[Rfam]
RNA sequence: CCCUCCUACAAAGGAGUGUCUGUGGCUCCCUAUCUUUGGACACAUAAGAAUUAGAGGCAAAGAAAUGUGAACUUGAAGAAGUCUGGAACCAGCCUACUCCCUACAGGCUCAAGAUCAAUCAUCCCACGUAG
Numbered sequence: 001c002c003c004u005c006c007u008a009c010a011a012a013g014g015a016g017u018g019u020c021u022g023u024g025g026c027u028c029c030c031u032a033u034c035u036u037u038g039g040a041c042a043c044a045u046a047a048g049a050a051u052u053a054g055a056g057g058c059a060a061a062g063a064a065a066u067g068u069g070a071a072c073u074u075g076a077a078g079a080a081g082u083c084u085g086g087a088a089c090c091a092g093c094c095u096a097c098u099c100c101c102u103a104c105a106g107g108c109u110c111a112a113g114a115u116c117a118a119u120c121a122u123c124c125c126a127c128g129u130a131g
Stems, first nucleotide, its partner, number of pairs: 002057004016043006024030002069124001071122001073121001091109005